Nucleotides: 030
Base pairs, nucleotide, nucleotide: 009019010018011017012016
Number, partner (000 for none) and nucleotide at each position: 001000g002000u003000u004000c005000a006000a007000a008000u009019a010018c011017a012016u013000c014000u015000u016012a017011u018010g019009u020000u021000a022000a023000g024000g025000u026000u027000c028000a029000a030000c
The record is a 30-nucleotide RNA from Clostridium thailandense, which matches "CRISPR RNA direct repeat element" in Rfam.
Rfam 15.1 lists 1,947 matches to the family in 60 species.
The family's consensus secondary structure was predicted with WAR.